L13-Bacteroidia ribosomal protein leader: a 71-nucleotide RNA sequence. Rfam classes the family as a cis-regulatory leader. Pairs were carried over by alignment from the consensus structure, which is taken from published work. A reference for the family is Eckert and Weinberg (2020), "Discovery of 20 novel ribosomal leader candidates in bacteria and archaea", BMC Microbiol. The sequence is in the family's curated seed alignment.

RNA sequence: AAGACGAUAAAAGUCUUAGAACCUGCGUGUUAAUAGCUCUUUCAUUGGCCUGGAAGGGUGGUUAGGGAAUC
Numbered sequence: 001a002a003g004a005c006g007a008u009a010a011a012a013g014u015c016u017u018a019g020a021a022c023c024u025g026c027g028u029g030u031u032a033a034u035a036g037c038u039c040u041u042u043c044a045u046u047g048g049c050c051u052g053g054a055a056g057g058g059u060g061g062u063u064a065g066g067g068a069a070u071c
Stems, first nucleotide, its partner, number of pairs: 001017005030065005036059009